The record is a 91-nucleotide sequence from Phytoamicus setariae, which matches "Glycine riboswitch aptamer" in Rfam. Rfam links the family to the GO term glycine biosynthetic process. The source organism's lineage runs through Bacteria, Pseudomonadota, Alphaproteobacteria, Rhizobiaceae and Phytoamicus. The pairing is the family consensus, mapped onto this sequence. It scores 66 bits against the family's covariance model.
RNA sequence: GGCGACCCAUUGGGAGAAUCUGCAUCUGGCAUGCAGUGCCGAAGGAGCAACCGCCCCGGAAACUCUCAGGCAAAAGGACCAACGGGCAGGA
Numbered sequence: 001g002g003c004g005a006c007c008c009a010u011u012g013g014g015a016g017a018a019u020c021u022g023c024a025u026c027u028g029g030c031a032u033g034c035a036g037u038g039c040c041g042a043a044g045g046a047g048c049a050a051c052c053g054c055c056c057c058g059g060a061a062a063c064u065c066u067c068a069g070g071c072a073a074a075a076g077g078a079c080c081a082a083c084g085g086g087c088a089g090g091a
Base pairs, nucleotide, nucleotide: 006086007085008084010082011081012080013079020036021035022034023033038071039070040069041067042066045065046064047063051059052058